[Rfam]
RNA sequence: AUCACCUGAGGAUCUUGUUAAAAGGCAGAUCCUGAUUUAGAAGCUCUGUGGUGGGGCCCAAGAUUUUGCAUUUCUAACAAGCUCCCAGGUGAUGUCAA
Dot-bracket structure: ..(((....((..((((((((((.(((((..((...........................))..))))).))).))))))).))....))).......
A member of the RNA family "mir-544 microRNA precursor family" from Equus caballus, 98 nucleotides long. On this family, see Chiang et al., Genes Dev 2010: "Mammalian microRNAs: experimental evaluation of novel and previously annotated genes". Lineage of the source: Eukaryota > Metazoa > Eumetazoa > Mammalia > Equus. Pairs were carried over by alignment from the consensus structure, which was predicted with RNAalifold. A search with the family's covariance model found it, with a score of 78 bits. The family has 16 seed sequences and 10,750 matches in Rfam 15.1. Its family is annotated with miRNA-mediated post-transcriptional gene silencing and RISC complex in the Gene Ontology.